RNA sequence: ACACUUAUAGGCCGGGAGGUGUGCAAUAUAUGUUUAUAAAAUAUAUAUAUUGUCACGCUCCCCGUCCUGCAAGUGU
Numbered sequence: 001a002c003a004c005u006u007a008u009a010g011g012c013c014g015g016g017a018g019g020u021g022u023g024c025a026a027u028a029u030a031u032g033u034u035u036a037u038a039a040a041a042u043a044u045a046u047a048u049a050u051u052g053u054c055a056c057g058c059u060c061c062c063c064g065u066c067c068u069g070c071a072a073g074u075g076u
Stems, first nucleotide, its partner, number of pairs: 001076006010067002013064002016061001020057002023054001024052009